[Rfam]
RNA sequence: CGGACCUUGAUAUGUCUGGUAUUCUUGGGUUCGAAUUCAAAGCGAAGCGAACCAGCAUAUUAGACGUAUCGACGGCCGG
Numbered sequence: 001c002g003g004a005c006c007u008u009g010a011u012a013u014g015u016c017u018g019g020u021a022u023u024c025u026u027g028g029g030u031u032c033g034a035a036u037u038c039a040a041a042g043c044g045a046a047g048c049g050a051a052c053c054a055g056c057a058u059a060u061u062a063g064a065c066g067u068a069u070c071g072a073c074g075g076c077c078g079g
Base pairs, nucleotide, nucleotide: 008071009070010069011068012067013066014065015064016063017062018061019060020059021058022057028053029052030051031050032049033048
Record summary: Shown here is a 79-nucleotide RNA sequence, a member of the family "mir-50 microRNA precursor family". On this family, see Lim et al., Genes Dev 2003: "The microRNAs of Caenorhabditis elegans". The match comes from Rfam's covariance-model search (75 bits).